6S / SsrS RNA: a 182-nucleotide RNA sequence from Pollutimonas harenae. On this family, see Wassarman and Storz, Cell 2000: "6S RNA regulates E. coli RNA polymerase activity". Lineage of the source: Bacteria > Betaproteobacteria > Burkholderiales > Alcaligenaceae > Pollutimonas. The base pairs follow the family's consensus structure, which is taken from published work. The family's RNA type in Rfam is non-coding RNA gene.
[Rfam]
Nucleotides: 182
Stems, first nucleotide, its partner, number of pairs: 005177007012169004017165002035150003040145005061127003065123003073116001075114005084104001089101004
Number, partner (000 for none) and nucleotide at each position: 001000u002000a003000a004000a005177c006176c007175c008174u009173g010172c011171c012169g013168u014167g015166u016000u017165c018164g019000a020000g021000a022000c023000u024000u025000g026000g027000c028000c029000a030000u031000a032000c033000a034000u035150u036149c037148c038000u039000u040145g041144a042143a043142c044141c045000a046000a047000u048000g049000c050000u051000u052000a053000u054000g055000g056000c057000a058000u059000u060000a061127g062126g063125u064000u065123g066122c067121u068000g069000g070000a071000u072000u073116g074000a075114c076113a077112a078111g079110u080000a081000g082000g083000a084104g085000c086000g087000a088000u089101c090100u091099u092098c093000u094000u095000a096000a097000c098092g099091a100090a101089g102000a103000a104084c105000c106000c107000g108000a109000a110079g111078c112077u113076u114075g115000a116073c117000u118000g119000a120000a121067g122066g123065c124000g125063a126062c127061c128000a129000c130000c131000u132000u133000g134000g135000a136000c137000c138000u139000c140000c141044g142043g143042u144041u145040c146000c147000a148037g149036g150035a151000u152000g153000c154000c155000g156000g157000c158000c159000u160000u161000u162000g163000a164018c165017g166015g167014c168013a169012c170000a171011g172010g173009c174008g175007g176006g177005g178000c179000c180000a181000u182000u